[Rfam]
RNA sequence: GUAGAUGCUCAUUCCGCCUUCUAUGUUUGCUUCGGCUUCAUAAUCCUGGGAAUGACGCAGAGCCGUUUACAGGUGCCUAUCGUCCACCUCCAGAUGACGUUGUGAUUAGCCGUUUUCACUGCAUCCACGACACCAUCGGACUUUUCGGACAUUACGUUGAGUGAGGCACUCUACUGUAGUCUUUUAUGACCUGAUCUUAUUCAACGCUUGCCGUUUAUUGGCAAGAGUUUUUUU
Numbered sequence: 001g002u003a004g005a006u007g008c009u010c011a012u013u014c015c016g017c018c019u020u021c022u023a024u025g026u027u028u029g030c031u032u033c034g035g036c037u038u039c040a041u042a043a044u045c046c047u048g049g050g051a052a053u054g055a056c057g058c059a060g061a062g063c064c065g066u067u068u069a070c071a072g073g074u075g076c077c078u079a080u081c082g083u084c085c086a087c088c089u090c091c092a093g094a095u096g097a098c099g100u101u102g103u104g105a106u107u108a109g110c111c112g113u114u115u116u117c118a119c120u121g122c123a124u125c126c127a128c129g130a131c132a133c134c135a136u137c138g139g140a141c142u143u144u145u146c147g148g149a150c151a152u153u154a155c156g157u158u159g160a161g162u163g164a165g166g167c168a169c170u171c172u173a174c175u176g177u178a179g180u181c182u183u184u185u186a187u188g189a190c191c192u193g194a195u196c197u198u199a200u201u202c203a204a205c206g207c208u209u210g211c212c213g214u215u216u217a218u219u220g221g222c223a224a225g226a227g228u229u230u231u232u233u234u
Stems, first nucleotide, its partner, number of pairs: 001063002006059003009055004015050001017049001019042001027035001029033001072170007082150004093137004179190003203229003207225007
RNA: GlmZ RNA activator of glmS mRNA